[Rfam]
RNA sequence: AUGCGAGGGGCCCAGCAGAGAGACAGACUCUUCAUACAGUGAGGUCUUUCUAACAUCAUGUUUACACCUUCGCAUAGGGAGACAAGCCAUUGUUGUUAGAUACCUGGAACUUUUCCUUUCCAGUGCAUCUCUAGUGAUGGCUUACACUUUU
Numbered sequence: 001a002u003g004c005g006a007g008g009g010g011c012c013c014a015g016c017a018g019a020g021a022g023a024c025a026g027a028c029u030c031u032u033c034a035u036a037c038a039g040u041g042a043g044g045u046c047u048u049u050c051u052a053a054c055a056u057c058a059u060g061u062u063u064a065c066a067c068c069u070u071c072g073c074a075u076a077g078g079g080a081g082a083c084a085a086g087c088c089a090u091u092g093u094u095g096u097u098a099g100a101u102a103c104c105u106g107g108a109a110c111u112u113u114u115c116c117u118u119u120c121c122a123g124u125g126c127a128u129c130u131c132u133a134g135u136g137a138u139g140g141c142u143u144a145c146a147c148u149u150u151u
Base pairs, nucleotide, nucleotide: 003073004072005071006070007069008068009067011020013018026049027048031043032042033041034040035039085142086141087140088139089138090137091136099129100128103125104123105122106121107120108119109118
The record is a 151-nucleotide sequence from Amborella trichopoda, which matches "Small nucleolar RNA snoR145" in Rfam. Taxonomically the source falls in Amborella (Eukaryota, Viridiplantae, Tracheophyta, Magnoliopsida). Gene Ontology terms of the family: nucleolus and RNA processing. The family's consensus secondary structure was predicted with mfold.